[Rfam]
RNA sequence: AAAGACAGAAACCGGUGGUUAAAAAUUAUCUGUCAGGAUUCAGGUGAAAUAUACCUGUGGCAAGAGAGAUGUUAUCUGACUGACCCUCUCUUGCUCCCGUAGUU
Numbered sequence: 001a002a003a004g005a006c007a008g009a010a011a012c013c014g015g016u017g018g019u020u021a022a023a024a025a026u027u028a029u030c031u032g033u034c035a036g037g038a039u040u041c042a043g044g045u046g047a048a049a050u051a052u053a054c055c056u057g058u059g060g061c062a063a064g065a066g067a068g069a070u071g072u073u074a075u076c077u078g079a080c081u082g083a084c085c086c087u088c089u090c091u092u093g094c095u096c097c098c099g100u101a102g103u104u
Stems, first nucleotide, its partner, number of pairs: 004034006011026001041057004059095010071084003
Dot-bracket structure: ...((((((.(..............)..))))))......((((.........)))).((((((((((..(((........))).)))))))))).........